[Rfam]
RNA sequence: CCUCUGGAAAUGCCCGCAACCUGCGGAAGCCGAUGGGGAUCCAAAACUCUCAGGCAAAAAGACAGAGG
Numbered sequence: 001c002c003u004c005u006g007g008a009a010a011u012g013c014c015c016g017c018a019a020c021c022u023g024c025g026g027a028a029g030c031c032g033a034u035g036g037g038g039a040u041c042c043a044a045a046a047c048u049c050u051c052a053g054g055c056a057a058a059a060a061g062a063c064a065g066a067g068g
Stems, first nucleotide, its partner, number of pairs: 001068006014026003029055003032051002036049003
Dot-bracket structure: ((((((.......(((.......)))..(((((..(((........))))).))).......))))))
The record is a 68-nucleotide RNA from Sulfobacillus acidophilus, which matches "Glycine riboswitch aptamer" in Rfam. The match comes from Rfam's covariance-model search (35 bits). A reference for the family is Mandal et al. (2004), "A glycine-dependent riboswitch that uses cooperative binding to control gene expression", Science. Its family is annotated with glycine biosynthetic process in the Gene Ontology.